Overview: Shown here is a 79-nucleotide sequence from Succinatimonas hippei, a member of the family "Group II catalytic intron D1-D4-1". It scores 52 bits against the family's covariance model. Pairs were carried over by alignment from the consensus structure. The organism belongs to Succinatimonas hippei, within Bacteria.
RNA sequence: CGGGUGGCAGAGCCAUAGUAACAACGAACUGUCAGAAGUCAGCAGAGGUCAUAGUAGCCAUGGAGUAGUGGUGAAGGAC
Numbered sequence: 001c002g003g004g005u006g007g008c009a010g011a012g013c014c015a016u017a018g019u020a021a022c023a024a025c026g027a028a029c030u031g032u033c034a035g036a037a038g039u040c041a042g043c044a045g046a047g048g049u050c051a052u053a054g055u056a057g058c059c060a061u062g063g064a065g066u067a068g069u070g071g072u073g074a075a076g077g078a079c
Stems, first nucleotide, its partner, number of pairs: 001026002004022002007019002011016001039046002048079003057072005